[Rfam]
RNA sequence: CUCUUAUUCCGAGCUGGUGGAGGGAACAGGCCCUGCGAAACCCGGCAACCUGGCUAAUGAGGCGAAGGUGCCAAACCUGAAGCAAGGUGAACAAGCCUUGGACGAUAAGAG
Numbered sequence: 001c002u003c004u005u006a007u008u009c010c011g012a013g014c015u016g017g018u019g020g021a022g023g024g025a026a027c028a029g030g031c032c033c034u035g036c037g038a039a040a041c042c043c044g045g046c047a048a049c050c051u052g053g054c055u056a057a058u059g060a061g062g063c064g065a066a067g068g069u070g071c072c073a074a075a076c077c078u079g080a081a082g083c084a085a086g087g088u089g090a091a092c093a094a095g096c097c098u099u100g101g102a103c104g105a106u107a108a109g110a111g
Stems, first nucleotide, its partner, number of pairs: 001111008013043001016042003022033003027082001030077001044072004049068002051065001053063002083100006